[Rfam]
RNA sequence: GUGCUUGAGGAGCGUUGCAACGGGUCCUUCCCGUCAGGCUCAAGCAUCGUUAGUACUGCUGUUUUUUAAAUAGUUAAGUGUCUAGCGCCUAGCUGCAACGACGCUCAUUUUUC
Numbered sequence: 001g002u003g004c005u006u007g008a009g010g011a012g013c014g015u016u017g018c019a020a021c022g023g024g025u026c027c028u029u030c031c032c033g034u035c036a037g038g039c040u041c042a043a044g045c046a047u048c049g050u051u052a053g054u055a056c057u058g059c060u061g062u063u064u065u066u067u068a069a070a071u072a073g074u075u076a077a078g079u080g081u082c083u084a085g086c087g088c089c090u091a092g093c094u095g096c097a098a099c100g101a102c103g104c105u106c107a108u109u110u111u112u113c
Stems, first nucleotide, its partner, number of pairs: 002046007021033004